TPP riboswitch aptamer (THI element): a 102-nucleotide sequence from Nitratireductor aestuarii. The base pairs follow the family's consensus structure, which is taken from published work. The source organism's lineage runs through Bacteria, Pseudomonadota, Alphaproteobacteria, Phyllobacteriaceae and Nitratireductor. For this family Rfam cites "Comparative genomics of thiamin biosynthesis in procaryotes. New genes and regulatory mechanisms" (Rodionov et al., J Biol Chem, 2002).
RNA sequence: ACACAUCCUUUGGGGUGCCCUUCGGGGCUGAGAGGUGCAUUGCACUAACCCAUUGAACCUGAUCCGGGUCAUGCCGGCGGAGGGAAGGGAAUUGUGUGACAG
Number, nucleotide and partner (000 for none) at each position: 001a000002c000003a000004c000005a000006u090007c089008c088009u087010u086011u052012g051013g050014g049015g000016u000017g028018c027019c026020c025021u000022u000023c000024g000025g020026g019027g018028c017029u000030g000031a000032g000033a000034g000035g045036u044037g043038c042039a000040u000041u000042g038043c037044a036045c035046u000047a000048a000049c014050c013051c012052a011053u000054u000055g000056a000057a000058c083059c082060u081061g000062a000063u000064c077065c076066g075067g074068g000069u000070c000071a000072u000073g000074c067075c066076g065077g064078c000079g000080g000081a060082g059083g058084g000085a000086a010087g009088g008089g007090a006091a000092u000093u000094g000095u000096g000097u000098g000099a000100c000101a000102g000